Shown here is a 78-nucleotide RNA sequence from Pangasianodon hypophthalmus, a member of the family "mir-17 microRNA precursor family". The literature on the family includes a 2001 paper in Science by Lagos-Quintana et al., "Identification of novel genes coding for small expressed RNAs". About the family: This family represents the microRNA (miRNA) precursor mir-17, family, which includes mir-20, mir-91, and mir-103. miRNAs are transcribed as ~70nt precursors (modelled here) and subsequently processed by the Dicer enzyme to give a ~22nt product. In this case the mature sequence comes from the 3' arm of the precursor. The extents of the hairpin precursors are not generally known and are estimated based on hairpin prediction.

RNA sequence: CGAGUGGUGCUAAAGUGCUUAUAGUGCAGGUAGUGUGUGAGCGAUCUACUGCAGUGUGAGCACUUAAAGUACUUCCAG
Numbered sequence: 001c002g003a004g005u006g007g008u009g010c011u012a013a014a015g016u017g018c019u020u021a022u023a024g025u026g027c028a029g030g031u032a033g034u035g036u037g038u039g040a041g042c043g044a045u046c047u048a049c050u051g052c053a054g055u056g057u058g059a060g061c062a063c064u065u066a067a068a069g070u071a072c073u074u075c076c077a078g
Stems, first nucleotide, its partner, number of pairs: 004075001006073002009070003013065011025053003029050005